The record is a 121-nucleotide RNA sequence from Pseudaminobacter salicylatoxidans, which matches "Alphaproteobacterial ar14" in Rfam. Rfam classes the family as a small RNA. NCBI's taxonomy places the organism under Bacteria, Pseudomonadati, Alphaproteobacteria, Hyphomicrobiales, Pseudaminobacter. Rfam's curators write: Smr14C2 was renamed NfeR1 (Nodule Formation Efficiency RNA) highly expressed in salt stress and during the symbiotic interaction on legume roots.
RNA sequence: UGAAUUUCGCCGGAGCAAUCCUCCUCCCGGUUCCGGCGAAUAAGGUCAGUGAUAUCCUCCUCCCGUCACUGACCACCCCAAACGGCACCUGCCGGACCUCCUCCCCCGGCAGGUGCUGUUC
Numbered sequence: 001u002g003a004a005u006u007u008c009g010c011c012g013g014a015g016c017a018a019u020c021c022u023c024c025u026c027c028c029g030g031u032u033c034c035g036g037c038g039a040a041u042a043a044g045g046u047c048a049g050u051g052a053u054a055u056c057c058u059c060c061u062c063c064c065g066u067c068a069c070u071g072a073c074c075a076c077c078c079c080a081a082a083c084g085g086c087a088c089c090u091g092c093c094g095g096a097c098c099u100c101c102u103c104c105c106c107c108g109g110c111a112g113g114u115g116c117u118g119u120u121c
Base pairs, nucleotide, nucleotide: 007039008038009037010036011035012034013033014032015031016030044074045073046072047071048070049069050068051067052066085116086115087114088113089112090111091110092109093108094107095106